[Rfam]
RNA sequence: UCCCGACAACCCUCUACUCGGAUCGUCCGGCACGUUCCUGCCGGUGAAGGGAAGUGAAC
Numbered sequence: 001u002c003c004c005g006a007c008a009a010c011c012c013u014c015u016a017c018u019c020g021g022a023u024c025g026u027c028c029g030g031c032a033c034g035u036u037c038c039u040g041c042c043g044g045u046g047a048a049g050g051g052a053a054g055u056g057a058a059c
Base pairs, nucleotide, nucleotide: 010051011050012049013048015046016045027044028043029042030041031040032039
Shown here is a 59-nucleotide sequence from Nocardia donostiensis, a member of the family "msiK RNA".